[Rfam]
RNA sequence: AAGUGAUGAUGAAGUCUACGCUCAAAGUGUUGGUUGGGUCCAUCACAGCCGUCCGAUUUACAGGAUGAUGAAACAGCGUUGCUGAGCUU
Numbered sequence: 001a002a003g004u005g006a007u008g009a010u011g012a013a014g015u016c017u018a019c020g021c022u023c024a025a026a027g028u029g030u031u032g033g034u035u036g037g038g039u040c041c042a043u044c045a046c047a048g049c050c051g052u053c054c055g056a057u058u059u060a061c062a063g064g065a066u067g068a069u070g071a072a073a074c075a076g077c078g079u080u081g082c083u084g085a086g087c088u089u
Base pairs, nucleotide, nucleotide: 001089002088003087004086